[Rfam]
RNA: MIR5565 microRNA precursor family
RNA sequence: GUUGUCGGAUUCACCUUAAUCUACAUGUGUUGGAGUGAAUUGGGGUGGAAUUUAGUUCAAGUUCUACUCCAACUCAUCCCAACACAUGUGGAUUGAUGCGAAUCCGACU
Numbered sequence: 001g002u003u004g005u006c007g008g009a010u011u012c013a014c015c016u017u018a019a020u021c022u023a024c025a026u027g028u029g030u031u032g033g034a035g036u037g038a039a040u041u042g043g044g045g046u047g048g049a050a051u052u053u054a055g056u057u058c059a060a061g062u063u064c065u066a067c068u069c070c071a072a073c074u075c076a077u078c079c080c081a082a083c084a085c086a087u088g089u090g091g092a093u094u095g096a097u098g099c100g101a102a103u104c105c106g107a108c109u
Base pairs, nucleotide, nucleotide: 004108005107006106007105008104009103010102011101012100014098016096017095018094019093020092021091022090023089024088025087026086027085028084029083030082031081032080035077036076037075038074040072041071042070043069045067046066047065